[Rfam]
RNA sequence: AUCCGCCUUGGGCGGGGCUGCGGCUAGGGUCGCUUAGUGCGUGCGAACCCGGCCGAUCCCGCGAGGCGAGGUCGGAUGAUGGUGGCGGCUGUGAUGGUGCGGCUGGCGGGUCAUCGGCGGGGGCUAUAGCGCAGGCGCGGACGAGAGGCUAGGGGGCCGGCGCCGGACGGCCGAU
Numbered sequence: 001a002u003c004c005g006c007c008u009u010g011g012g013c014g015g016g017g018c019u020g021c022g023g024c025u026a027g028g029g030u031c032g033c034u035u036a037g038u039g040c041g042u043g044c045g046a047a048c049c050c051g052g053c054c055g056a057u058c059c060c061g062c063g064a065g066g067c068g069a070g071g072u073c074g075g076a077u078g079a080u081g082g083u084g085g086c087g088g089c090u091g092u093g094a095u096g097g098u099g100c101g102g103c104u105g106g107c108g109g110g111u112c113a114u115c116g117g118c119g120g121g122g123g124c125u126a127u128a129g130c131g132c133a134g135g136c137g138c139g140g141a142c143g144a145g146a147g148g149c150u151a152g153g154g155g156g157c158c159g160g161c162g163c164c165g166g167a168c169g170g171c172c173g174a175u
Stems, first nucleotide, its partner, number of pairs: 002016005017161004022054004027049002031045003057155004063149001067145001071136003075130001079127005086121001088118004094114005100108002
A member of the RNA family "caulobacter sRNA CC3513" from Caulobacter sp. Root655, 175 nucleotides long. It scores 80 bits against the family's covariance model. Rfam classes the family as a small RNA.